[Rfam]
RNA sequence: AACGAUAAAGGCAAACCAUGCGAAAGCAUGGGACGCAAAGCUAGAGGGGCUUAUCGCAUCCGCGAUUGCCAGCCAGCUGCCGAAA
Numbered sequence: 001a002a003c004g005a006u007a008a009a010g011g012c013a014a015a016c017c018a019u020g021c022g023a024a025a026g027c028a029u030g031g032g033a034c035g036c037a038a039a040g041c042u043a044g045a046g047g048g049g050c051u052u053a054u055c056g057c058a059u060c061c062g063c064g065a066u067u068g069c070c071a072g073c074c075a076g077c078u079g080c081c082g083a084a085a
Stems, first nucleotide, its partner, number of pairs: 003082002011036002016031006034072001039078004046074002048070003
RNA: c-di-GMP-I-GGC riboswitch aptamer